[Rfam]
RNA sequence: CGCAGGGCUGCACCCUGCGCUGGGUUAUGCCGCCCUUUCAGGGCU
Numbered sequence: 001c002g003c004a005g006g007g008c009u010g011c012a013c014c015c016u017g018c019g020c021u022g023g024g025u026u027a028u029g030c031c032g033c034c035c036u037u038u039c040a041g042g043g044c045u
Stems, first nucleotide, its partner, number of pairs: 001019007032044005
The record is a 45-nucleotide RNA sequence from Adhaeribacter aerolatus, which matches "Acido-Lenti-1 RNA" in Rfam. The family's RNA type in Rfam is small RNA.